[Rfam]
RNA: Small nucleolar RNA snoR97
Organism: Acer saccharum
RNA sequence: CUUUCCCUUUGGGUAUCGGGUCUGAAAAACUCAGAAAUCGAUGUGUUGUCAUCAGCUUCUUCUUCCGUUUAUUUACGAGAUUGGAGUUAAAUAACAGCACUAUAAUU
Numbered sequence: 001c002u003u004u005c006c007c008u009u010u011g012g013g014u015a016u017c018g019g020g021u022c023u024g025a026a027a028a029a030c031u032c033a034g035a036a037a038u039c040g041a042u043g044u045g046u047u048g049u050c051a052u053c054a055g056c057u058u059c060u061u062c063u064u065c066c067g068u069u070u071a072u073u074u075a076c077g078a079g080a081u082u083g084g085a086g087u088u089a090a091a092u093a094a095c096a097g098c099a100c101u102a103u104a105a106u107u
Base pairs, nucleotide, nucleotide: 043100044099045098046097047096048095054088055087056086057085058084059083061080062079063078064077